ylbH leader: a 112-nucleotide RNA sequence from Alteribacillus iranensis. The organism belongs to Alteribacillus, within Bacteria. The literature on the family includes a 2004 paper in Proc Natl Acad Sci U S A by Barrick et al., "New RNA motifs suggest an expanded scope for riboswitches in bacterial genetic control". Pairs were carried over by alignment from the consensus structure.

RNA sequence: AGAAAAAAGAGGCUGUUCCUCAGGGUAAAGGAACAGCCUGCCCGAUUUUUCGGGCUAUGGGAGAGGAGAAACCGGAGGAAGAACUUAUGGGGAAAGUAAGUCUUCUCCGCGG
Numbered sequence: 001a002g003a004a005a006a007a008a009g010a011g012g013c014u015g016u017u018c019c020u021c022a023g024g025g026u027a028a029a030g031g032a033a034c035a036g037c038c039u040g041c042c043c044g045a046u047u048u049u050u051c052g053g054g055c056u057a058u059g060g061g062a063g064a065g066g067a068g069a070a071a072c073c074g075g076a077g078g079a080a081g082a083a084c085u086u087a088u089g090g091g092g093a094a095a096g097u098a099a100g101u102c103u104u105c106u107c108c109g110c111g112g
Stems, first nucleotide, its partner, number of pairs: 011038009039061001040055005073109004078105004083101005
It scores 82 bits against the family's covariance model. Rfam classes the family as a cis-regulatory leader.